About this RNA
Rfam assigns this 113-nucleotide RNA sequence from Macleaya cordata to the family "Small nucleolar RNA snoR99". The source organism's lineage runs through Eukaryota, Streptophytina, Euphyllophyta, Papaveraceae and Macleaya. It is annotated as an H/ACA-box small nucleolar RNA. Rfam links the family to the GO terms nucleolus and RNA processing.
[Rfam]
RNA sequence: GUGCCUUAGGGUUGAACGAGUCCCUAAUAUGCAACCCUAAAAUCCAUCUUUUCUUCAGUGUCAGCAAAUUGAUUUCAUUCUCUGCUUUUAUACCAUUCUAAGAUGGAAAAUUC
Number, nucleotide and partner (000 for none) at each position: 001g000002u000003g000004c000005c000006u000007u000008a000009g000010g000011g000012u000013u000014g000015a000016a000017c000018g000019a000020g000021u000022c000023c000024c000025u000026a000027a000028u000029a000030u000031g000032c000033a000034a000035c000036c000037c000038u000039a000040a000041a000042a000043u107044c106045c105046a104047u103048c102049u000050u000051u000052u000053c000054u000055u000056c000057a000058g000059u000060g093061u092062c000063a086064g085065c084066a083067a000068a000069u000070u000071g000072a000073u000074u000075u000076c000077a000078u000079u000080c000081u000082c000083u066084g065085c064086u063087u000088u000089u000090a000091u000092a061093c060094c000095a000096u000097u000098c000099u000100a000101a000102g048103a047104u046105g045106g044107a043108a000109a000110a000111u000112u000113c000